Annotation: Small nucleolar RNA snoR138: a 135-nucleotide RNA from Jatropha curcas. The organism belongs to Jatropha, within Eukaryota. The family's RNA type in Rfam is H/ACA-box small nucleolar RNA.
[Rfam]
Nucleotides: 135
Base pairs, nucleotide, nucleotide: 003060004059005058006057007056008055014048015047016046017045018044019043020042023039024038071128072127073126074125075124076123078115079114080113082112084110086109088106089105091103093101
Number, partner (000 for none) and nucleotide at each position: 001000a002000u003060c004059g005058c006057c007056u008055c009000c010000g011000a012000a013000u014048a015047a016046c017045c018044a019043g020042a021000a022000g023039g024038u025000u026000g027000a028000u029000u030000u031000a032000a033000u034000c035000a036000a037000u038024g039023c040000c041000g042020u043019u044018u045017g046016g047015u048014u049000c050000a051000g052000a053000c054000a055008g056007a057006g058005g059004c060003g061000a062000a063000g064000a065000a066000c067000a068000a069000c070000c071128u072127g073126a074125a075124u076123c077000u078115g079114u080113u081000u082112g083000a084110g085000g086109g087000u088106a089105a090000g091103g092000a093101a094000a095000u096000u097000u098000c099000c100000a101093u102000c103091u104000g105089u106088u107000u108000u109086c110084c111000c112082c113080a114079a115078c116000c117000u118000a119000g120000a121000u122000c123076g124075a125074u126073u127072c128071a129000a130000a131000u132000a133000u134000u135000u